Overview:
The record is a 305-nucleotide RNA sequence from Lathyrus oleraceus, which matches "Plant signal recognition particle RNA" in Rfam. It is annotated as a non-coding RNA gene. A search with the family's covariance model found it, with a score of 210 bits. The base pairs follow the family's consensus structure, which is taken from published work. Lineage of the source: Eukaryota > Tracheophyta > Gunneridae > Hologalegina > Lathyrus.
RNA sequence: UCCGAGCUGAGUUGCACCAGCUUGUGACCCAUGUGGGGGCAUCAAGGUGAUGGAACAUGGCUAAGGCUUAACAGGUUGGGUUGGUGGUUGCACCAUGUUGGCCUGCCCGCUCCAAGUUGUGAGUUGACCCAUGGGACUUGUGCGAAGGCACAAGUCUUGUGUGUCUUAGACAGGAGGGUAUAGCGUGAGGCUGGUUUCACAGAGCAGCGAACACUUCCUACUCUUGACAGUGGAGGGAUCACGGGCCGCUGCACCUCCAGCCCACAACACCUGGUGUGCCUAUAUAUAGAUGCUACUGCAUCAUA
Numbered sequence: 001u002c003c004g005a006g007c008u009g010a011g012u013u014g015c016a017c018c019a020g021c022u023u024g025u026g027a028c029c030c031a032u033g034u035g036g037g038g039g040c041a042u043c044a045a046g047g048u049g050a051u052g053g054a055a056c057a058u059g060g061c062u063a064a065g066g067c068u069u070a071a072c073a074g075g076u077u078g079g080g081u082u083g084g085u086g087g088u089u090g091c092a093c094c095a096u097g098u099u100g101g102c103c104u105g106c107c108c109g110c111u112c113c114a115a116g117u118u119g120u121g122a123g124u125u126g127a128c129c130c131a132u133g134g135g136a137c138u139u140g141u142g143c144g145a146a147g148g149c150a151c152a153a154g155u156c157u158u159g160u161g162u163g164u165c166u167u168a169g170a171c172a173g174g175a176g177g178g179u180a181u182a183g184c185g186u187g188a189g190g191c192u193g194g195u196u197u198c199a200c201a202g203a204g205c206a207g208c209g210a211a212c213a214c215u216u217c218c219u220a221c222u223c224u225u226g227a228c229a230g231u232g233g234a235g236g237g238a239u240c241a242c243g244g245g246c247c248g249c250u251g252c253a254c255c256u257c258c259a260g261c262c263c264a265c266a267a268c269a270c271c272u273g274g275u276g277u278g279c280c281u282a283u284a285u286a287u288a289g290a291u292g293c294u295a296c297u298g299c300a301u302c303a304u305a
Stems, first nucleotide, its partner, number of pairs: 002039002004023006028037003044304001046302004052296001056292002058289001060287001064281003069276002072273005078263007086255001089253002099248007107237002110235005116228004121223004126165003130161014172219006184209003191202003